[Rfam]
RNA sequence: GGCUGCCCUGAUGGCAGUGAGUUAUCUUAACUGAUUGUUCACAGUCAGUUACAGAUCGAAAUCUUUGUUCUACUCUCUCCCCCUUUUCACUACUGUACUUGAAAAGCCUACA
Numbered sequence: 001g002g003c004u005g006c007c008c009u010g011a012u013g014g015c016a017g018u019g020a021g022u023u024a025u026c027u028u029a030a031c032u033g034a035u036u037g038u039u040c041a042c043a044g045u046c047a048g049u050u051a052c053a054g055a056u057c058g059a060a061a062u063c064u065u066u067g068u069u070c071u072a073c074u075c076u077c078u079c080c081c082c083c084u085u086u087u088c089a090c091u092a093c094u095g096u097a098c099u100u101g102a103a104a105a106g107c108c109u110a111c112a
Stems, first nucleotide, its partner, number of pairs: 001108004008101001010100002014096002016091006043074003047071002

Notes:
Rfam assigns this 112-nucleotide RNA sequence from Callithrix jacchus to the family "Y RNA". The base pairs follow the family's consensus structure, which is taken from published work. Rfam describes the family as follows. Y RNAs are components of the Ro ribonucleoprotein particle (Ro RNP), in association with Ro60 and La proteins. The Y RNAs and Ro60 and La proteins are well conserved, but the function of the Ro RNP is not known. A search with the family's covariance model found it, with a score of 47 bits. Rfam classes the family as a non-coding RNA gene.